[Rfam]
RNA sequence: ACCUGUCGCGGAUGAUUGAGCGGCGCCGCGACAUAUGACAGGAACACCGUGCCACGGAAACAAAGUGGCACUUCAGGGCGUU
Numbered sequence: 001a002c003c004u005g006u007c008g009c010g011g012a013u014g015a016u017u018g019a020g021c022g023g024c025g026c027c028g029c030g031a032c033a034u035a036u037g038a039c040a041g042g043a044a045c046a047c048c049g050u051g052c053c054a055c056g057g058a059a060a061c062a063a064a065g066u067g068g069c070a071c072u073u074c075a076g077g078g079c080g081u082u
Stems, first nucleotide, its partner, number of pairs: 004033008013025002016022001049071007